[Rfam]
The family of this 97-nucleotide sequence from Microbacteriaceae bacterium MWH-Ta3 is "Bacterial small signal recognition particle RNA".
RNA sequence: AUCAGCCCCUCGUGUGGCGCUAUCUUGGCUAACUCCCCCAGGUCAGAAAUGAAGCAAGGGUAACUGGGCUCUGGCGGGUACACGAGGGGUCUUGUCU
Numbered sequence: 001a002u003c004a005g006c007c008c009c010u011c012g013u014g015u016g017g018c019g020c021u022a023u024c025u026u027g028g029c030u031a032a033c034u035c036c037c038c039c040a041g042g043u044c045a046g047a048a049a050u051g052a053a054g055c056a057a058g059g060g061u062a063a064c065u066g067g068g069c070u071c072u073g074g075c076g077g078g079u080a081c082a083c084g085a086g087g088g089g090u091c092u093u094g095u096c097u
Stems, first nucleotide, its partner, number of pairs: 005090010015078001018076005024068005030062001035060003043052003
The family's consensus secondary structure is taken from published work. About the family: The signal recognition particle (SRP) is a universally conserved ribonucleoprotein involved in the co-translational targeting of proteins to membranes. For this family Rfam cites "SRPDB: Signal Recognition Particle Database" (Rosenblad et al., Nucleic Acids Res, 2003). The organism belongs to Microbacteriaceae, within Bacteria. It is annotated as a non-coding RNA gene.